Rfam assigns this 318-nucleotide RNA from Sousa chinensis to the family "Nuclear RNase P".
Taxonomically the source falls in Sousa (Eukaryota, Opisthokonta, Euteleostomi, Artiodactyla).
[Rfam]
RNA sequence: AGGAUCAUAAUGGGGCCACGAGCUGAGUGCGUUCAGUCACUCCGUCCCAUGUCCCUUGGGAAGGUCUGAGACUAGGGCCAAAAGCGGCCCUAACAGGGCUCUCCCUGAGUUUCGGGGAGGUGAGUUCCCAGAGAAUGGGGCUCCGCGCGAGGGCAGACUGGGCAGGAGAUGCCAUCGACCCCGCCUUUGCGGAUGGGGCUUGGCGGAUGCCUCCUUAGCCGGAGCUUGGAACAGACUCACGGCCAGCGAAGUGAGUUCAAUGGCUGAGGUGAGGUACCCUGUAUGGGGGCCUCAUAACCCAAUUCAGACUACUCUCCC
Numbered sequence: 001a002g003g004a005u006c007a008u009a010a011u012g013g014g015g016c017c018a019c020g021a022g023c024u025g026a027g028u029g030c031g032u033u034c035a036g037u038c039a040c041u042c043c044g045u046c047c048c049a050u051g052u053c054c055c056u057u058g059g060g061a062a063g064g065u066c067u068g069a070g071a072c073u074a075g076g077g078c079c080a081a082a083a084g085c086g087g088c089c090c091u092a093a094c095a096g097g098g099c100u101c102u103c104c105c106u107g108a109g110u111u112u113c114g115g116g117g118a119g120g121u122g123a124g125u126u127c128c129c130a131g132a133g134a135a136u137g138g139g140g141c142u143c144c145g146c147g148c149g150a151g152g153g154c155a156g157a158c159u160g161g162g163c164a165g166g167a168g169a170u171g172c173c174a175u176c177g178a179c180c181c182c183g184c185c186u187u188u189g190c191g192g193a194u195g196g197g198g199c200u201u202g203g204c205g206g207a208u209g210c211c212u213c214c215u216u217a218g219c220c221g222g223a224g225c226u227u228g229g230a231a232c233a234g235a236c237u238c239a240c241g242g243c244c245a246g247c248g249a250a251g252u253g254a255g256u257u258c259a260a261u262g263g264c265u266g267a268g269g270u271g272a273g274g275u276a277c278c279c280u281g282u283a284u285g286g287g288g289g290c291c292u293c294a295u296a297a298c299c300c301a302a303u304u305c306a307g308a309c310u311a312c313u314c315u316c317c318c
Stems, first nucleotide, its partner, number of pairs: 005266001008263001012056004025042005030036001066307005076244004086100005101119006120240007140225006269295007

Annotation: The literature on the family includes a 2000 paper in RNA by Frank et al., "Phylogenetic-comparative analysis of the eukaryal ribonuclease P RNA". Clan: RNaseP clan.